The family of this 102-nucleotide RNA from Alkalicoccus urumqiensis is "Purine riboswitch aptamer". Lineage of the source: Bacteria > Bacillati > Bacilli > Caryophanales > Alkalicoccus. The match comes from Rfam's covariance-model search (78 bits).

[Rfam]
RNA sequence: UCUAAAAACGGAAACAAGCCUCAUAUAUCCUUGAGAAUACGGCUCGAGAGUCUCUACCGGAUCACCGUAAAUGAUCUGACUAUGAAGGCAGAACCUUUAACG
Numbered sequence: 001u002c003u004a005a006a007a008a009c010g011g012a013a014a015c016a017a018g019c020c021u022c023a024u025a026u027a028u029c030c031u032u033g034a035g036a037a038u039a040c041g042g043c044u045c046g047a048g049a050g051u052c053u054c055u056a057c058c059g060g061a062u063c064a065c066c067g068u069a070a071a072u073g074a075u076c077u078g079a080c081u082a083u084g085a086a087g088g089c090a091g092a093a094c095c096u097u098u099a100a101c102g
Stems, first nucleotide, its partner, number of pairs: 019087001021085005030048006058078007